The record is a 193-nucleotide sequence from Huiozyma naganishii, which matches "Small nucleolar RNA snR32" in Rfam. On this family, see Balakin et al., Nucleic Acids Res 1993: "SnR31, snR32, and snR33: three novel, non-essential snRNAs from Saccharomyces cerevisiae". Rfam links the family to the GO terms RNA processing and nucleolus. Rfam classes the family as an H/ACA-box small nucleolar RNA. NCBI's taxonomy places the organism under Eukaryota, Saccharomycotina, Saccharomycetes, Saccharomycetales, Huiozyma naganishii. It scores 150 bits against the family's covariance model.
RNA sequence: AACAUCAUAAUAAUAUCGCGAAUGCACUGUCAUACACCGGAUUUUUAUUCUUUUAAUUAUCCAGAGGGUGAUUCAAACUUUCUAUACCUCCCUCAACUGUGAUGGUCGCUGAAGCGUAGAUAAAUUGAACGUUGCUGGGCGCCUGAUGCUGAUUAUUUAAGUGAUGCAUUGGGAAUCAGCUGUAUCCACAUUU
Numbered sequence: 001a002a003c004a005u006c007a008u009a010a011u012a013a014u015a016u017c018g019c020g021a022a023u024g025c026a027c028u029g030u031c032a033u034a035c036a037c038c039g040g041a042u043u044u045u046u047a048u049u050c051u052u053u054u055a056a057u058u059a060u061c062c063a064g065a066g067g068g069u070g071a072u073u074c075a076a077a078c079u080u081u082c083u084a085u086a087c088c089u090c091c092c093u094c095a096a097c098u099g100u101g102a103u104g105g106u107c108g109c110u111g112a113a114g115c116g117u118a119g120a121u122a123a124a125u126u127g128a129a130c131g132u133u134g135c136u137g138g139g140c141g142c143c144u145g146a147u148g149c150u151g152a153u154u155a156u157u158u159a160a161g162u163g164a165u166g167c168a169u170u171g172g173g174a175a176u177c178a179g180c181u182g183u184a185u186c187c188a189c190a191u192u193u
Stems, first nucleotide, its partner, number of pairs: 017116003024109002026106007039062003045056002064094005070088001072086001127186002129183003142173002146169004153164004